Background: mir-4900 microRNA precursor family: a 75-nucleotide sequence from Branchiostoma lanceolatum. The family's consensus secondary structure was predicted with RNAalifold.
RNA sequence: GCUAAGAGUUUUUCUUCGCCGGCACAGCUCUGUGACAAAGGAAUCAUAGCUGGCUGGCGAAGAAAUGCCCUUUCA
Number, nucleotide and partner (000 for none) at each position: 001g000002c000003u000004a000005a071006g070007a000008g068009u067010u000011u065012u064013u063014c062015u061016u060017c059018g000019c057020c056021g055022g054023c000024a000025c052026a051027g050028c049029u048030c000031u046032g044033u043034g000035a000036c000037a000038a000039a000040g000041g000042a000043a033044u032045c000046a031047u000048a029049g028050c027051u026052g025053g000054c022055u021056g020057g019058c000059g017060a016061a015062g014063a013064a012065a011066u000067g009068c008069c000070c006071u005072u000073u000074c000075a000